[Rfam]
RNA sequence: CAAUUCCGGUCCUCGCAAGAGCUAGCCACUCACGAGGAAGCGAGUGUUGGGUGAGGAUUCGUGAGGAUCGUCAUCAAGCGUACACAGCGCGACGUCCAGGCCGUAACCCUACGGGGUGAAGUGAUUGAGCUUCGUGACAAACUAAAUCCGUGGGCCGACCGUUUUAAGCAACCGGGAAGGCAACAGUACGAACCCGACACCGGCAAGGGUUCGGGAGACCACGGCGGAGUCGGAGAGCA
Dot-bracket structure: ...........((((...(((.[.[[..))).))))...((..(((((((((((.(((((....))))).)))))...)).)))).)).....................................((.((((((.............(((((((((..(((...........)))...))).....(.(((((((.......]].]))))))).)...))))))))))))).)......

A member of the RNA family "Group II catalytic intron D1-D4-6" from Sulfobacillus harzensis, 239 nucleotides long. Its family is annotated with Group II intron splicing in the Gene Ontology. From the family's description: Group II introns are found in rRNA, tRNA and mRNA of organelles in fungi, plants and protists, and also in mRNA in bacteria. Lineage of the source: Bacteria > Bacillota > Clostridia > Eubacteriales > Sulfobacillus.